[Rfam]
RNA sequence: GUGUUUGAGGAUGCAACAUCAUCAAGAUUCACAAAACUUGAAGGUAGAAUAAGGAUAUAUAGUUCUCUCUUCUCUUAGUCUCCUUUCAUAUGAGAAUCUUGAUGAUGCUGCAUCAUCAAACAU
Dot-bracket structure: .........((((((.((((((((((((((.((.........................................................)).)))))))))))))).)))))).........
Background:
A member of the RNA family "mir-172 microRNA precursor family" from Anisodus acutangulus, 123 nucleotides long. About the family: mir-172 has been experimentally verified in Arabidopsis thaliana. This family is thought to target mRNAs coding for APETALA2-like transcription factors. The mature sequence is excised from the 3' arm of the hairpin. Taxonomically the source falls in Anisodus (Eukaryota, Streptophyta, Euphyllophyta, Solanales).